[Rfam]
RNA sequence: CUCUGGAAAGCAGCGCACCUCCCGCGACGGAGGCAGGCGCUCACCGAAGGAGUAAGCCGCGCCCUUCCACGAGGCGUGGUGAAAUCUCUCAGGUUUCCCGGACAGAG
Numbered sequence: 001c002u003c004u005g006g007a008a009a010g011c012a013g014c015g016c017a018c019c020u021c022c023c024g025c026g027a028c029g030g031a032g033g034c035a036g037g038c039g040c041u042c043a044c045c046g047a048a049g050g051a052g053u054a055a056g057c058c059g060c061g062c063c064c065u066u067c068c069a070c071g072a073g074g075c076g077u078g079g080u081g082a083a084a085u086c087u088c089u090c091a092g093g094u095u096u097c098c099c100g101g102a103c104a105g106a107g
Stems, first nucleotide, its partner, number of pairs: 001107005012041004043094003046090002050088003056080008

Glycine riboswitch aptamer: a 107-nucleotide sequence from Xanthobacter tagetidis. NCBI's taxonomy places the organism under Bacteria, Alphaproteobacteria, Hyphomicrobiales, Xanthobacteraceae, Xanthobacter.